[Rfam]
A member of the RNA family "Histone 3' UTR stem-loop" from Callipepla squamata, 47 nucleotides long. The source organism's lineage runs through Eukaryota, Eumetazoa, Archelosauria, Odontophoridae and Callipepla. By type it is a cis-regulatory element. The match comes from Rfam's covariance-model search (42 bits). The family's consensus secondary structure is taken from published work. The family has 50 seed sequences and 44,596 matches in Rfam 15.1. A reference for the family is Williams and Marzluff (1995), "The sequence of the stem and flanking sequences at the 3' end of histone mRNA are critical determinants for the binding of the stem-loop binding protein", Nucleic Acids Res.
Nucleotides: 047
Base pairs, nucleotide, nucleotide: 006021007020008019009018010017011016
Number, partner (000 for none) and nucleotide at each position: 001000c002000c003000a004000a005000a006021g007020g008019c009018u010017c011016u012000u013000u014000u015000c016011a017010g018009a019008g020007c021006c022000a023000c024000c025000a026000c027000u028000u029000a030000u031000u032000c033000a034000a035000c036000u037000a038000a039000a040000a041000g042000g043000g044000c045000u046000g047000u